[Rfam]
ZMP/ZTP riboswitch aptamer (pfl RNA motif): an 80-nucleotide sequence from Crassaminicella thermophila.

RNA sequence: CACGAAUCACAUGACUGGCGGAAGUGGAAGUAACCACAUGGAGUGUGAUUUGAGAAAUGCCGACCGCCUGGGCGAUAAGU
Numbered sequence: 001c002a003c004g005a006a007u008c009a010c011a012u013g014a015c016u017g018g019c020g021g022a023a024g025u026g027g028a029a030g031u032a033a034c035c036a037c038a039u040g041g042a043g044u045g046u047g048a049u050u051u052g053a054g055a056a057a058u059g060c061c062g063a064c065c066g067c068c069u070g071g072g073c074g075a076u077a078a079g080u
Base pairs, nucleotide, nucleotide: 003052004051005050006049007048008047009046010045011044012043015040017068018067019066020065021064024037025036026035027034058074059073060072061071